[Rfam]
Background: A member of the RNA family "Bacterial small signal recognition particle RNA" from Tenderia electrophaga, 97 nucleotides long. It is annotated as a non-coding RNA gene. From the family's description: The signal recognition particle (SRP) is a universally conserved ribonucleoprotein involved in the co-translational targeting of proteins to membranes. Its Rfam clan is "SRP clan". Rfam links the family to the GO terms signal recognition particle, plasma membrane targeting and SRP-dependent cotranslational protein targeting to membrane, signal sequence recognition. The family's consensus secondary structure is taken from published work.
RNA sequence: CGUCGGUCACCCCGCAACGAUACAUUGCGAACCCCGCCAGGCCCGGAAGGGAGCAACGGUAGUGAUGGAUUCGUGUGCCGGGGCACGGCGGGCGCGG
Numbered sequence: 001c002g003u004c005g006g007u008c009a010c011c012c013c014g015c016a017a018c019g020a021u022a023c024a025u026u027g028c029g030a031a032c033c034c035c036g037c038c039a040g041g042c043c044c045g046g047a048a049g050g051g052a053g054c055a056a057c058g059g060u061a062g063u064g065a066u067g068g069a070u071u072c073g074u075g076u077g078c079c080g081g082g083g084c085a086c087g088g089c090g091g092g093c094g095c096g097g
Base pairs, nucleotide, nucleotide: 004091006089007088008087010083011082012081013080014079015075017074018073019072020071023067024066025065026064027063028062034059035058036057042051043050044049